This 89-nucleotide sequence from Cupriavidus gilardii belongs to the Rfam family "Glycine riboswitch aptamer". About the family: This family represents the bacterial glycine riboswitch. The organism belongs to Cupriavidus gilardii, within Bacteria.
RNA sequence: GCCAUCCGCACGGGAGAGCGCGCGUUCAUUCGCGCCGCCGAAGGGGAAUCACCCGCAAACUCUCAGGCACCAUGGACCGGGCGGAUCGG
Numbered sequence: 001g002c003c004a005u006c007c008g009c010a011c012g013g014g015a016g017a018g019c020g021c022g023c024g025u026u027c028a029u030u031c032g033c034g035c036c037g038c039c040g041a042a043g044g045g046g047a048a049u050c051a052c053c054c055g056c057a058a059a060c061u062c063u064c065a066g067g068c069a070c071c072a073u074g075g076a077c078c079g080g081g082c083g084g085a086u087c088g089g
Base pairs, nucleotide, nucleotide: 006084007083008082009081011079012078013077020035021034022033023032037068038067039066040064041063044062045061046060050055